Shown here is a 437-nucleotide part of an RNA from Diaporthe ampelina, a member of the family "Ascomycota telomerase RNA". The family is grouped with related families in Rfam's "Telomerase clan".
[Rfam]
RNA sequence: AUCACACGGAAAGAGCUUCUUCCUGAUGCGGCUGGUGGCCUUUUUCACAGCAUCUUGCGGCGGUUUCGGCAAUGUUGCGUCUACGACGACAAAGCUUCUUUGGGAACGUUUGAGAUGCGGGCUCUGGGCGAGUUGCGGGUGUGAUGCAUCAUGGGACCCAUCGAUCAGGUUCUCGGGGUGAUGCUCGCCGACUGUGGUGCGCCUGUUGAGGUUCUUUUGCCUGGCAUGCGGCAGAAUUGGGACCCAUCUCGAGUUGGAGUCAAAGUUUUGUACUUGUUCGAUUCUGUUGUCGGCCUUGCAAUUGGCUUUUAAUCUGGCAGCUACAUGAAAGUAGCCCUCUCUGGGAUCUGGUCUCCAUUUGGAAAGGGACAGGGUUCGUGAAGAACAGUCCCGGCUGCUCUCUCUUCAGGAAUGGCGAGAGAGUGGCCCCCCCUUUU
Dot-bracket structure: ................................................................................................................................................................................................................................................((((((........))).))).((((.....))))..................................................................................................................................................................

Source information: Taxonomically the source falls in Diaporthe (Eukaryota, Dikarya, Ascomycota, Pezizomycotina). Rfam 15.1 lists 475 matches to the family in 456 species. It scores 453 bits against the family's covariance model. For this family Rfam cites "The common ancestral core of vertebrate and fungal telomerase RNAs" (Qi et al., Nucleic Acids Res, 2013).